[Rfam]
RNA sequence: UGGUGCAAGUUUGAAGCCACAACAGAAACACUCAUGGUGUGGCCCCUUCAGAUUCCAAUAAAACUGCAAAUUCUAUU
Numbered sequence: 001u002g003g004u005g006c007a008a009g010u011u012u013g014a015a016g017c018c019a020c021a022a023c024a025g026a027a028a029c030a031c032u033c034a035u036g037g038u039g040u041g042g043c044c045c046c047u048u049c050a051g052a053u054u055c056c057a058a059u060a061a062a063a064c065u066g067c068a069a070a071u072u073c074u075a076u077u
Stems, first nucleotide, its partner, number of pairs: 013046001016043003021077002024074004028040003049066003053062002